RNA sequence: GUUCAUUCUGUCGUGUAUCCCCAAUUAAUGUAACCUUAGAUGCUUUA
Numbered sequence: 001g002u003u004c005a006u007u008c009u010g011u012c013g014u015g016u017a018u019c020c021c022c023a024a025u026u027a028a029u030g031u032a033a034c035c036u037u038a039g040a041u042g043c044u045u046u047a
Base pairs, nucleotide, nucleotide: 010025011024013022032044034042
Plastid-ycf3 group II-D1 intron: a 47-nucleotide sequence from Cucurbita maxima.
Gene Ontology term of the family: Group II intron splicing.
The base pairs follow the family's consensus structure, which was predicted with LocARNA.
Taxonomically the source falls in Cucurbita (Eukaryota, Embryophyta, eudicotyledons, fabids).
The match comes from Rfam's covariance-model search (55 bits).
Plastid rpl16 is a non-coding RNA (ncRNA) recognised in plastids. It was recognised in and intronic region of a ribosome rpl16 gene.